Description
Shown here is a 65-nucleotide RNA from Streptomyces sp. GMY02, a member of the family "Fluoride riboswitch aptamer (crcB RNA motif)". The match comes from Rfam's covariance-model search (46 bits). The base pairs follow the family's consensus structure, which is taken from published work.
RNA sequence: CGUCCCCAUGGCGAUGGGGCUCGCCAUAACCGCAGGACGUUCCUGCUGAUGGCCUCUACCGGUGU
Numbered sequence: 001c002g003u004c005c006c007c008a009u010g011g012c013g014a015u016g017g018g019g020c021u022c023g024c025c026a027u028a029a030c031c032g033c034a035g036g037a038c039g040u041u042c043c044u045g046c047u048g049a050u051g052g053c054c055u056c057u058a059c060c061g062g063u064g065u
Base pairs, nucleotide, nucleotide: 010025011024012023013022016056017055018054019053020052021051032046033045034044035043